[Rfam]
Shown here is a 129-nucleotide RNA sequence from Drosophila virilis, a member of the family "Small nucleolar RNA psi28S-3316".

RNA sequence: AGCACCUAAAAGCGUUUUCUUGUACGCCAACUCAAUGCGCUUGAAAAUCGUAGCUGUGUGCUAGAGCAAAGCUUAGUUGCAGGUGACUUUUUGUACUUCAAAUAAGAGUCCAUAACGCUGAGUACAUUU
Numbered sequence: 001a002g003c004a005c006c007u008a009a010a011a012g013c014g015u016u017u018u019c020u021u022g023u024a025c026g027c028c029a030a031c032u033c034a035a036u037g038c039g040c041u042u043g044a045a046a047a048u049c050g051u052a053g054c055u056g057u058g059u060g061c062u063a064g065a066g067c068a069a070a071g072c073u074u075a076g077u078u079g080c081a082g083g084u085g086a087c088u089u090u091u092u093g094u095a096c097u098u099c100a101a102a103u104a105a106g107a108g109u110c111c112a113u114a115a116c117g118c119u120g121a122g123u124a125c126a127u128u129u
Stems, first nucleotide, its partner, number of pairs: 001062005006056001012051003015047005022038002073121005083113003086109004091105004
Dot-bracket structure: ((((((.....((((((((..((.............))....))))).)))....).)))))..........(((((.....(((((((.((((.......)))))))).)))...)))))........
About this RNA:
It is annotated as an H/ACA-box small nucleolar RNA. Its family is annotated with RNA processing and nucleolus in the Gene Ontology. From the family's description: psi28S-3316 is a member of the H/ACA class of snoRNA. This family is responsible for guiding the modification of uridine 3316 in Drosophila 28S rRNA to pseudouridine.